[Rfam]
RNA sequence: GCGCCCUAUGGCAAGGCUACUUAUAUUUCAUCAUAACUACCAUAGAAAAAGUUAUCGUAAAGGAGUUAUGAUAUAAU
Numbered sequence: 001g002c003g004c005c006c007u008a009u010g011g012c013a014a015g016g017c018u019a020c021u022u023a024u025a026u027u028u029c030a031u032c033a034u035a036a037c038u039a040c041c042a043u044a045g046a047a048a049a050a051g052u053u054a055u056c057g058u059a060a061a062g063g064a065g066u067u068a069u070g071a072u073a074u075a076a077u
Base pairs, nucleotide, nucleotide: 030072031071032070033069034068035067036066037065